Description
Retron msr RNA: a 74-nucleotide RNA sequence from Shewanella gelidii. A reference for the family is Ahmed and Shimamoto (2003), "msDNA-St85, a multicopy single-stranded DNA isolated from Salmonella enterica serovar Typhimurium LT2 with the genomic analysis of its retron", FEMS Microbiol Lett.
RNA sequence: ACUCUUUAGCGUUUGGGUAGAAUACCAAUUCAACCUUGUCGGGCGAUUCGCUAGACACUAACUUAUUGAGUGUA
Numbered sequence: 001a002c003u004c005u006u007u008a009g010c011g012u013u014u015g016g017g018u019a020g021a022a023u024a025c026c027a028a029u030u031c032a033a034c035c036u037u038g039u040c041g042g043g044c045g046a047u048u049c050g051c052u053a054g055a056c057a058c059u060a061a062c063u064u065a066u067u068g069a070g071u072g073u074a
Stems, first nucleotide, its partner, number of pairs: 004072001005070005037057004042052004

The organism belongs to Shewanella, within Bacteria. From the family's description: Retron elements are found in a wide range of mainly Gram-negative bacteria.